Shown here is a 118-nucleotide RNA sequence from Actinocatenispora sera, a member of the family "SAM (S-adenosyl methionine) riboswitch aptamer". From the family's description: SAM-IV is a mRNA element that regulates gene expression via direct sensing of S-adenosylmethionine (SAM or AdoMet). SAM-IV riboswitches share conserved nucleotide positions with the previously described SAM-I riboswitches sequence analysis and molecular recognition experiments suggest that SAM-I and SAM-IV riboswitches share similar ligand binding sites, but have different scaffolds. Pairs were carried over by alignment from the consensus structure, which is taken from published work.
[Rfam]
RNA sequence: GGUCACGAGUGCCAGCGUCAAGCCCCGGCUUGCUGGCCGGCAACCCUCGCUUCCGCGGUGGGGUGCCCCGGGUGAAGACCGGGCCCGCGCGCCGCACGGCGACGGGCAAGCGCGGACC
Numbered sequence: 001g002g003u004c005a006c007g008a009g010u011g012c013c014a015g016c017g018u019c020a021a022g023c024c025c026c027g028g029c030u031u032g033c034u035g036g037c038c039g040g041c042a043a044c045c046c047u048c049g050c051u052u053c054c055g056c057g058g059u060g061g062g063g064u065g066c067c068c069c070g071g072g073u074g075a076a077g078a079c080c081g082g083g084c085c086c087g088c089g090c091g092c093c094g095c096a097c098g099g100c101g102a103c104g105g106g107c108a109a110g111c112g113c114g115g116a117c118c
Stems, first nucleotide, its partner, number of pairs: 001080004009038001011037006021030002039067003044063003048058001050057001083107005090101004